The record is a 75-nucleotide RNA from Roseobacter sp. AzwK-3b, which matches "L2-Alphaproteobacteria ribosomal protein leader" in Rfam. A reference for the family is Eckert and Weinberg (2020), "Discovery of 20 novel ribosomal leader candidates in bacteria and archaea", BMC Microbiol. Rfam's curators put it in the seed alignment.

[Rfam]
RNA sequence: GGCCACCUUCGGGGGGCUUAACCAUAGGCGGAUUUGCCUCAACGGGCGCCGCCGUUAGCAAACGGAAGACAGAAA
Numbered sequence: 001g002g003c004c005a006c007c008u009u010c011g012g013g014g015g016g017c018u019u020a021a022c023c024a025u026a027g028g029c030g031g032a033u034u035u036g037c038c039u040c041a042a043c044g045g046g047c048g049c050c051g052c053c054g055u056u057a058g059c060a061a062a063c064g065g066a067a068g069a070c071a072g073a074a075a
Stems, first nucleotide, its partner, number of pairs: 001018004006014003027053005035048005